[Rfam]
RNA sequence: CAUUCGUAAUCGCUGAGUUUCCGAACAAGGAAAACGGGGGAACCAAUGGCGGACGUUCGUCGGUGUGAGAGCCGGCUACCGUCCGUCCGGGGUGAAUCCCGAGCACGCCGCGCCUAGGAUGCGCGUGCUCGGGUAGGGCGACUCUCACCGCCCGAAUCCGACAGCUAACCUCGUAAGCGUUGUGCUAGAUCCA
Number, nucleotide and partner (000 for none) at each position: 001c000002a000003u000004u000005c000006g000007u000008a000009a000010u000011c179012g178013c177014u176015g000016a000017g000018u033019u032020u031021c030022c029023g000024a000025a000026c000027a000028a000029g022030g021031a020032a019033a018034a174035c173036g172037g171038g170039g169040g000041a000042a000043c000044c089045a000046a000047u000048g000049g000050c000051g000052g000053a000054c000055g000056u000057u000058c000059g000060u000061c000062g000063g000064u000065g000066u000067g000068a000069g000070a000071g000072c000073c000074g000075g000076c000077u000078a000079c000080c000081g000082u000083c000084c000085g000086u000087c000088c000089g044090g159091g158092g157093u000094g000095a000096a000097u000098c133099c132100c131101g130102a129103g128104c127105a126106c125107g124108c123109c000110g000111c000112g000113c000114c000115u000116a000117g000118g000119a000120u000121g000122c000123g108124c107125g106126u105127g104128c103129u102130c101131g100132g099133g098134u000135a000136g153137g152138g151139c150140g000141a000142c000143u000144c000145u000146c000147a000148c000149c000150g139151c138152c137153c136154g000155a000156a000157u092158c091159c090160g000161a000162c000163a000164g000165c000166u000167a000168a000169c039170c038171u037172c036173g035174u034175a000176a014177g013178c012179g011180u000181u000182g000183u000184g000185c000186u000187a000188g000189a000190u000191c000192c000193a000
Shown here is a 193-nucleotide RNA from Cohnella lupini, a member of the family "c-di-AMP riboswitch aptamer (ydaO/yuaA leader)". The source organism's lineage runs through Bacteria, Bacillati, Bacillota, Paenibacillaceae and Cohnella.